A member of the RNA family "mir-3689 microRNA precursor family" from Homo sapiens, 72 nucleotides long.

RNA sequence: GGGAGGUGUGAUAUCGUGGUUCCUGGGAGGUGUGAUAUCGUGGUUCCUGGGAGGUGUGAUAUUGUGGUUCCU
Numbered sequence: 001g002g003g004a005g006g007u008g009u010g011a012u013a014u015c016g017u018g019g020u021u022c023c024u025g026g027g028a029g030g031u032g033u034g035a036u037a038u039c040g041u042g043g044u045u046c047c048u049g050g051g052a053g054g055u056g057u058g059a060u061a062u063u064g065u066g067g068u069u070c071c072u
Base pairs, nucleotide, nucleotide: 001071002070003069004068014059015058016057017056018055020053021052022051023050024049025048026047027046028045029044031042032041033040034039